Shown here is a 123-nucleotide sequence from Brassica napus, a member of the family "MIR9563 microRNA precursor family". Taxonomically the source falls in Brassica (Eukaryota, Tracheophyta, Euphyllophyta, malvids).
RNA sequence: GAAAGUUAAGAAACUGUUUCAACUUUUAACUAAAAAGGCUAAGAACCGGUUCUUAAAUAAGGACUUUAAGAACCAGUUCUUAGUUUUUUUAGUUAAAAGUUAAGAAACAACUUUUUAACUUCC
Numbered sequence: 001g002a003a004a005g006u007u008a009a010g011a012a013a014c015u016g017u018u019u020c021a022a023c024u025u026u027u028a029a030c031u032a033a034a035a036a037g038g039c040u041a042a043g044a045a046c047c048g049g050u051u052c053u054u055a056a057a058u059a060a061g062g063a064c065u066u067u068a069a070g071a072a073c074c075a076g077u078u079c080u081u082a083g084u085u086u087u088u089u090u091a092g093u094u095a096a097a098a099g100u101u102a103a104g105a106a107a108c109a110a111c112u113u114u115u116u117a118a119c120u121u122c123c
Base pairs, nucleotide, nucleotide: 001123003121004120005119006118007117008116009115010114011113012112015109016108017107018106019105020104021101022100023099024098025097026096027095028094029093030092031091032090033089034088035087036086037085039083040082041081042080043079044078045077